[Rfam]
RNA sequence: GUGAAGUUGAUCACAAGCAAACAAAUACCCCUUUGUUUGACCGUGAAAAAUUUCUCCCAUCCCCUUUGUUCGUAUUAUAUAAAGAAAAAGACCAUGCAGCGAGGCCGCUGAAUGGUCUUU
Numbered sequence: 001g002u003g004a005a006g007u008u009g010a011u012c013a014c015a016a017g018c019a020a021a022c023a024a025a026u027a028c029c030c031c032u033u034u035g036u037u038u039g040a041c042c043g044u045g046a047a048a049a050a051u052u053u054c055u056c057c058c059a060u061c062c063c064c065u066u067u068g069u070u071c072g073u074a075u076u077a078u079a080u081a082a083a084g085a086a087a088a089a090g091a092c093c094a095u096g097c098a099g100c101g102a103g104g105c106c107g108c109u110g111a112a113u114g115g116u117c118u119u120u
Stems, first nucleotide, its partner, number of pairs: 003054006011046004018039006070086001073084001090117006097110004
A member of the RNA family "RNA Staph. aureus E (RoxS)" from Bacillus methanolicus, 120 nucleotides long. Rfam describes the family as follows. It was shown to be regulated by the presence of nitric oxide (NO). In Bacillus subtilis it controls expression of genes with functions related to oxidative stress and oxidation-reduction reactions and it was renamed RoxS (for related to oxidative stress). A search with the family's covariance model found it, with a score of 99 bits. The literature on the family includes a 2015 paper in PLoS Genet by Durand et al., "A nitric oxide regulated small RNA controls expression of genes involved in redox homeostasis in Bacillus subtilis". Gene Ontology term of the family: regulation of translational initiation. Taxonomically the source falls in Bacillus methanolicus (Bacteria, Bacillota, Bacilli, Caryophanales). Pairs were carried over by alignment from the consensus structure, which is taken from published work.